[Rfam]
RNA sequence: GACACCAGUUUGAAGUAGAGUAGAUUAGUAGGUUCAGCUGAUCCUAUUAAUCUACUCUACUUCAAACCUGUGGCU
Numbered sequence: 001g002a003c004a005c006c007a008g009u010u011u012g013a014a015g016u017a018g019a020g021u022a023g024a025u026u027a028g029u030a031g032g033u034u035c036a037g038c039u040g041a042u043c044c045u046a047u048u049a050a051u052c053u054a055c056u057c058u059a060c061u062u063c064a065a066a067c068c069u070g071u072g073g074c075u
Base pairs, nucleotide, nucleotide: 001074003072004071005070008067009066011064012063013062014061015060016059017058018057019056020055021054022053023052025050026049027048028047029046030045032043034041035040
RNA: mir-5928 microRNA precursor family